[Rfam]
RNA: U4atac minor spliceosomal RNA
Organism: Elysia chlorotica
RNA sequence: ACCUUCCUUGUCUUGGGGUGUGAGCUUGCUCAAUGAGUGUUUAGCGAGAGCAAGACUGCUACCACCAUAACAAUAAUCAAAUCCGCAUCACUUCUGAAAAGAAGCUUGGGUGCAAUUUAUGGAGCC
Numbered sequence: 001a002c003c004u005u006c007c008u009u010g011u012c013u014u015g016g017g018g019u020g021u022g023a024g025c026u027u028g029c030u031c032a033a034u035g036a037g038u039g040u041u042u043a044g045c046g047a048g049a050g051c052a053a054g055a056c057u058g059c060u061a062c063c064a065c066c067a068u069a070a071c072a073a074u075a076a077u078c079a080a081a082u083c084c085g086c087a088u089c090a091c092u093u094c095u096g097a098a099a100a101g102a103a104g105c106u107u108g109g110g111u112g113c114a115a116u117u118u119a120u121g122g123a124g125c126c
Base pairs, nucleotide, nucleotide: 006018007017008016009015020059021058022057025054026053027052028051029050030049031048037045038044085113086112087111088110089109091104092103093102094101095100